[Rfam]
Shown here is a 77-nucleotide sequence from Angiostrongylus costaricensis, a member of the family "mir-44 microRNA precursor family". Rfam links the family to the GO terms RISC complex and miRNA-mediated post-transcriptional gene silencing. The match comes from Rfam's covariance-model search (54 bits). The organism belongs to Angiostrongylus, within Eukaryota.

RNA sequence: UUUGUGCCCGCCUGGAUGUCGAUCUUAGUCAUAAUAUAUGUGAAUAUGACUAGAGACACAUUCAGCGGGGCGGGAGC
Numbered sequence: 001u002u003u004g005u006g007c008c009c010g011c012c013u014g015g016a017u018g019u020c021g022a023u024c025u026u027a028g029u030c031a032u033a034a035u036a037u038a039u040g041u042g043a044a045u046a047u048g049a050c051u052a053g054a055g056a057c058a059c060a061u062u063c064a065g066c067g068g069g070g071c072g073g074g075a076g077c
Stems, first nucleotide, its partner, number of pairs: 005072005012065008023055001027051007